[Rfam]
RNA sequence: UCUAGGGCUUGACGCCCUAGGCUGGUAUGGGGCGCGCCUUUGGCGCU
Numbered sequence: 001u002c003u004a005g006g007g008c009u010u011g012a013c014g015c016c017c018u019a020g021g022c023u024g025g026u027a028u029g030g031g032g033c034g035c036g037c038c039u040u041u042g043g044c045g046c047u
Base pairs, nucleotide, nucleotide: 001021002020003019004018005017006016007015008014034046035045036044037043038042
A member of the RNA family "Acido-Lenti-1 RNA" from Prosthecobacter gellanilyticus, 47 nucleotides long. The match comes from Rfam's covariance-model search (37 bits). The family's RNA type in Rfam is small RNA.